RNA: MIR408 microRNA precursor family
RNA sequence: AGAAACAGACAGACAAAGACUGGGAACAGGCAGUGCAUGGAUGGGGCUACUAACAGAAAACAUCUGUUUUGGCUCUACCCCUGCACUGCCUCUUCCCUGGCUUCCGGUUCUUCUUUUUGU
Numbered sequence: 001a002g003a004a005a006c007a008g009a010c011a012g013a014c015a016a017a018g019a020c021u022g023g024g025a026a027c028a029g030g031c032a033g034u035g036c037a038u039g040g041a042u043g044g045g046g047c048u049a050c051u052a053a054c055a056g057a058a059a060a061c062a063u064c065u066g067u068u069u070u071g072g073c074u075c076u077a078c079c080c081c082u083g084c085a086c087u088g089c090c091u092c093u094u095c096c097c098u099g100g101c102u103u104c105c106g107g108u109u110c111u112u113c114u115u116u117u118u119g120u
Base pairs, nucleotide, nucleotide: 016103017102018101020099022097023096024095025094026093028091029090030089031088032087033086035084036083037082039080040079044075045074